The record is a 115-nucleotide RNA sequence from Sporanaerobacter acetigenes, which matches "FMN riboswitch aptamer (RFN element)" in Rfam. The source organism's lineage runs through Bacteria, Bacillati, Tissierellia, Sporanaerobacteraceae and Sporanaerobacter acetigenes. It scores 126 bits against the family's covariance model.
[Rfam]
RNA sequence: AUAUUCCUUCAGGGCGGGGUGAAAUUCCCCACCGGUGGUAAAGCCCACGAGCCUAAUAGGCAGAUUCGGUGAGAUUCCGAAGCCGACAGUAUAGUCUGGAUGAAAGAAGGUAUUG
Numbered sequence: 001a002u003a004u005u006c007c008u009u010c011a012g013g014g015c016g017g018g019g020u021g022a023a024a025u026u027c028c029c030c031a032c033c034g035g036u037g038g039u040a041a042a043g044c045c046c047a048c049g050a051g052c053c054u055a056a057u058a059g060g061c062a063g064a065u066u067c068g069g070u071g072a073g074a075u076u077c078c079g080a081a082g083c084c085g086a087c088a089g090u091a092u093a094g095u096c097u098g099g100a101u102g103a104a105a106g107a108a109g110g111u112a113u114u115g
Stems, first nucleotide, its partner, number of pairs: 003113002006110005017029003031095002033085002035048004043083002051061003065081005087098003